[Rfam]
RNA: mir-3473 microRNA precursor family
RNA sequence: ACCACUGAGCUAAAUCCCCAGCCCCUAAAUAAAUCUUUAAAAAAAAUAAAAAUAGGGUUGGGGAUUUAGCUCAGUGGU
Numbered sequence: 001a002c003c004a005c006u007g008a009g010c011u012a013a014a015u016c017c018c019c020a021g022c023c024c025c026u027a028a029a030u031a032a033a034u035c036u037u038u039a040a041a042a043a044a045a046a047u048a049a050a051a052a053u054a055g056g057g058u059u060g061g062g063g064a065u066u067u068a069g070c071u072c073a074g075u076g077g078u
Stems, first nucleotide, its partner, number of pairs: 002077023